A member of the RNA family "M-box riboswitch aptamer (ykoK leader)" from Enterobacter cancerogenus, 170 nucleotides long. The sequence is in the family's curated seed alignment. NCBI's taxonomy places the organism under Bacteria, Gammaproteobacteria, Enterobacterales, Enterobacter, Enterobacter cancerogenus.
RNA sequence: CAACGAUCUCGUUAUGGCGAGGCUCCUGUACAAAUACACGUUAUCGCUCUGGUGGGUUCGAGAGAACCGGCACAGGGUAAAACAGGCACUGUCGAAUCAAGGCUUUGUCAGUAUAACUUCCCUUGCGGGAUACGGUGUACAGUGCUGAACCCAGGACGUGGGGAUCUCUU
Numbered sequence: 001c002a003a004c005g006a007u008c009u010c011g012u013u014a015u016g017g018c019g020a021g022g023c024u025c026c027u028g029u030a031c032a033a034a035u036a037c038a039c040g041u042u043a044u045c046g047c048u049c050u051g052g053u054g055g056g057u058u059c060g061a062g063a064g065a066a067c068c069g070g071c072a073c074a075g076g077g078u079a080a081a082a083c084a085g086g087c088a089c090u091g092u093c094g095a096a097u098c099a100a101g102g103c104u105u106u107g108u109c110a111g112u113a114u115a116a117c118u119u120c121c122c123u124u125g126c127g128g129g130a131u132a133c134g135g136u137g138u139a140c141a142g143u144g145c146u147g148a149a150c151c152c153a154g155g156a157c158g159u160g161g162g163g164a165u166c167u168c169u170u
Stems, first nucleotide, its partner, number of pairs: 005166006011157002013100001016152002021146003026142007040117005046078005056067004085109004091103003119130003